[Rfam]
Shown here is an 83-nucleotide RNA sequence from Aedes aegypti, a member of the family "mir-87 microRNA precursor family". Rfam 15.1 lists 420 matches to the family in 285 species. Rfam's curators put it in the seed alignment. Lineage of the source: Eukaryota > Endopterygota > Panorpida > Culicomorpha > Stegomyia.
RNA sequence: CACUGGCCAGCCUGAAAUUUGCUAAACCUGUGUGUAUUUGAUUCAAACAAUCAAGGUGAGCAAAUUUUCAGGUGUGUCGGAGA
Numbered sequence: 001c002a003c004u005g006g007c008c009a010g011c012c013u014g015a016a017a018u019u020u021g022c023u024a025a026a027c028c029u030g031u032g033u034g035u036a037u038u039u040g041a042u043u044c045a046a047a048c049a050a051u052c053a054a055g056g057u058g059a060g061c062a063a064a065u066u067u068u069c070a071g072g073u074g075u076g077u078c079g080g081a082g083a
Base pairs, nucleotide, nucleotide: 003080004079005078006077007076010073011072012071013070014069015068016066017065018064019063020062022060023059025057027056028055029054